The record is an 83-nucleotide RNA sequence from Physcomitrium patens, which matches "Small nucleolar RNA Z102/R77" in Rfam. A search with the family's covariance model found it, with a score of 55 bits. The family has 9 seed sequences and 1,346 matches in Rfam 15.1. Rfam classes the family as a C/D-box small nucleolar RNA.
[Rfam]
RNA sequence: GCGUGAGAUGAGGAAUAAUUGUUUCCCUAUUGGUUUGACUGCCGCAAUGAUGGCCUUUAUUGCUUCAAACUUUCUGAUCGCGC
Numbered sequence: 001g002c003g004u005g006a007g008a009u010g011a012g013g014a015a016u017a018a019u020u021g022u023u024u025c026c027c028u029a030u031u032g033g034u035u036u037g038a039c040u041g042c043c044g045c046a047a048u049g050a051u052g053g054c055c056u057u058u059a060u061u062g063c064u065u066c067a068a069a070c071u072u073u074c075u076g077a078u079c080g081c082g083c
Stems, first nucleotide, its partner, number of pairs: 002082004037057001041054003